Record summary:
This 47-nucleotide RNA sequence from Pseudorhodobacter sp. PARRP1 belongs to the Rfam family "Guanidine-II riboswitch aptamer (mini-ykkC)". Lineage of the source: Bacteria > Pseudomonadota > Alphaproteobacteria > Rhodobacterales > Pseudorhodobacter. Simpler in structure and has fewer highly conserved nucleotide positions than the ykkC-yxkD leader.
[Rfam]
RNA sequence: AGCGCAGGACGGCCUGCGGCAUCACGCACCGCAUCGGGACGGCCCGA
Numbered sequence: 001a002g003c004g005c006a007g008g009a010c011g012g013c014c015u016g017c018g019g020c021a022u023c024a025c026g027c028a029c030c031g032c033a034u035c036g037g038g039a040c041g042g043c044c045c046g047a
Stems, first nucleotide, its partner, number of pairs: 003018006034047005